[Rfam]
RNA: A. fumigatus sRNA Afu_309
RNA sequence: AUGAACCGAACAAACACGGAUCUGUGUUCAGCGAUCCCGUUGAUGGAGGCAGCUCUGCUGUUCUCUGUGUUUCGGUUGAACGCUGGACAGUUCGACGACUUAAGGAGCCAUCAAUCUUGUGGAUGGUCUUUGCAAUCCGGUCGACAGAUCUCAGAUUAAAGGUUGGCGCUGGGUGUUCACUUGAGUCUUGAGCUCCCUUGUCCUUGACUUGGUGAGCUCGGCUGAAGAACUCGGUUGCUGACGGCGUCAUAUUCCUACUCUCUUUACCGAACUGGCCGUCGGCCACUGAGGUUAGGGAAUAACCAUGACCUGCCAACAUUC
Number, nucleotide and partner (000 for none) at each position: 001a000002u000003g000004a000005a000006c000007c000008g000009a000010a000011c000012a000013a000014a000015c000016a000017c000018g151019g150020a149021u148022c147023u146024g145025u144026g088027u087028u086029c085030a084031g083032c000033g081034a000035u079036c078037c075038c074039g073040u000041u000042g000043a068044u000045g065046g064047a000048g062049g061050c000051a059052g058053c057054u000055c000056u000057g053058c052059u051060g000061u049062u048063c000064u046065c045066u000067g000068u043069g000070u000071u000072u000073c039074g038075g037076u000077u000078g036079a035080a000081c033082g000083c031084u030085g029086g028087a027088c026089a000090g000091u000092u000093c000094g000095a000096c143097g142098a141099c140100u139101u000102a000103a131104g130105g129106a000107g127108c126109c125110a000111u000112c000113a000114a000115u000116c000117u000118u000119g000120u000121g000122g000123a000124u000125g109126g108127u107128c000129u105130u104131u103132g000133c000134a000135a000136u000137c000138c000139g100140g099141u098142c097143g096144a025145c024146a023147g022148a021149u020150c019151u018152c000153a000154g000155a000156u000157u000158a000159a000160a000161g000162g238163u237164u000165g000166g000167c000168g235169c234170u233171g232172g231173g230174u000175g000176u000177u000178c000179a000180c000181u000182u000183g000184a223185g222186u221187c220188u000189u000190g219191a218192g217193c216194u215195c214196c212197c211198u000199u000200g000201u000202c000203c000204u000205u000206g000207a000208c000209u000210u000211g197212g196213u000214g195215a194216g193217c192218u191219c190220g187221g186222c185223u184224g000225a000226a000227g000228a000229a000230c173231u172232c171233g170234g169235u168236u000237g163238c162239u000240g000241a000242c000243g314244g313245c312246g309247u308248c307249a306250u305251a000252u000253u000254c000255c000256u000257a000258c000259u298260c297261u296262c295263u294264u000265u000266a292267c291268c290269g000270a000271a000272c000273u000274g284275g283276c282277c281278g000279u000280c000281g277282g276283c275284c274285a000286c000287u000288g000289a000290g268291g267292u266293u000294a263295g262296g261297g260298a259299a000300u000301a000302a000303c000304c000305a250306u249307g248308a247309c246310c000311u000312g245313c244314c243315a000316a000317c000318a000319u000320u000321c000